[Rfam]
RNA sequence: GCGGCGGGACGACCCGCCGUCAUCGCACUCACCGGGGACGGCCCC
Numbered sequence: 001g002c003g004g005c006g007g008g009a010c011g012a013c014c015c016g017c018c019g020u021c022a023u024c025g026c027a028c029u030c031a032c033c034g035g036g037g038a039c040g041g042c043c044c045c
Stems, first nucleotide, its partner, number of pairs: 001020008034045004
RNA: Guanidine-II riboswitch aptamer (mini-ykkC)